[Rfam]
RNA: L4-Archaeoglobi ribosomal protein leades
RNA sequence: CUGAUCGAGACGAUGGGCCAACGCCAGUGCAGCGCGCCCGGUUCCGGGAACACUCUUUCCGGAAACGUCGGAGAAUCAG
Dot-bracket structure: (((((...((((.((((....(((.......)))..)))).(((((((((.....))))))))).)))).....)))))